This 69-nucleotide RNA from Zingiber officinale belongs to the Rfam family "Plastid-clpP 5UTR RNA". Plastid clpP is a non-coding RNA (ncRNA) recognised in plastids. The literature on the family includes a 2023 paper in Plant Commun by Richter et al., "Retrograde signaling in plants: A critical review focusing on the GUN pathway and beyond". Lineage of the source: Eukaryota > Viridiplantae > Tracheophyta > commelinids > Zingiber.
RNA sequence: AAUUCUGUUCAUAAAAGCAAAGAGAAGUGGAUCUAUCCUAUAUCCAAUAAGUACCAAUACGCAAUGGGA
Numbered sequence: 001a002a003u004u005c006u007g008u009u010c011a012u013a014a015a016a017g018c019a020a021a022g023a024g025a026a027g028u029g030g031a032u033c034u035a036u037c038c039u040a041u042a043u044c045c046a047a048u049a050a051g052u053a054c055c056a057a058u059a060c061g062c063a064a065u066g067g068g069a
Base pairs, nucleotide, nucleotide: 003022004021006019007018008017009016043068044067045066051060052059053058